[Rfam]
RNA sequence: GGCUCACGACAGGGGAGCACGCGCGAGCGUGCUGAGAGUGCGGAAGAGCCGCAGACCCUCGAACCUGCUCCGGUUAGCACCGGCGAAGGGAGUCCGGAAUGAAGUGCA
Numbered sequence: 001g002g003c004u005c006a007c008g009a010c011a012g013g014g015g016a017g018c019a020c021g022c023g024c025g026a027g028c029g030u031g032c033u034g035a036g037a038g039u040g041c042g043g044a045a046g047a048g049c050c051g052c053a054g055a056c057c058c059u060c061g062a063a064c065c066u067g068c069u070c071c072g073g074u075u076a077g078c079a080c081c082g083g084c085g086a087a088g089g090g091a092g093u094c095c096g097g098a099a100u101g102a103a104g105u106g107c108a
Stems, first nucleotide, its partner, number of pairs: 008094003011059004017032005039053005064089003070083004
This 108-nucleotide RNA sequence from Nocardioides lianchengensis belongs to the Rfam family "TPP riboswitch aptamer (THI element)".
Its family is annotated with thiamine pyrophosphate binding in the Gene Ontology.
Lineage of the source: Bacteria > Bacillati > Actinomycetota > Propionibacteriales > Nocardioides.